[Rfam]
RNA sequence: CCAUAGCCCCGAUUGCAGUGGAAAUCCUUUUUUUCGGCGGCGGCAAGGCUGAGGAAAAAAAAGAUUGCAACGGAAAGCGGGAAAUAGC
Numbered sequence: 001c002c003a004u005a006g007c008c009c010c011g012a013u014u015g016c017a018g019u020g021g022a023a024a025u026c027c028u029u030u031u032u033u034u035c036g037g038c039g040g041c042g043g044c045a046a047g048g049c050u051g052a053g054g055a056a057a058a059a060a061a062a063g064a065u066u067g068c069a070a071c072g073g074a075a076a077g078c079g080g081g082a083a084a085u086a087g088c
Stems, first nucleotide, its partner, number of pairs: 009080003013076002018071002023066004028061008
RNA: Flavo-1 RNA